[Rfam]
RNA: MIR2275 microRNA precursor family
RNA sequence: GUCUUGUAAGUGAGAAUUGGAUGGAACUAAAUCCUUCCAUCCUCUAUGGCAGAAUAGGGUUUAGUUUCCUCCAAUAUCUUAUAUUCAAUUA
Numbered sequence: 001g002u003c004u005u006g007u008a009a010g011u012g013a014g015a016a017u018u019g020g021a022u023g024g025a026a027c028u029a030a031a032u033c034c035u036u037c038c039a040u041c042c043u044c045u046a047u048g049g050c051a052g053a054a055u056a057g058g059g060u061u062u063a064g065u066u067u068c069c070u071c072c073a074a075u076a077u078c079u080u081a082u083a084u085u086c087a088a089u090u091a
Base pairs, nucleotide, nucleotide: 004088005087006086008084011081012080013079014078016075017074018073019072020071021070023068024067025066026065027064028063029062030061032059033058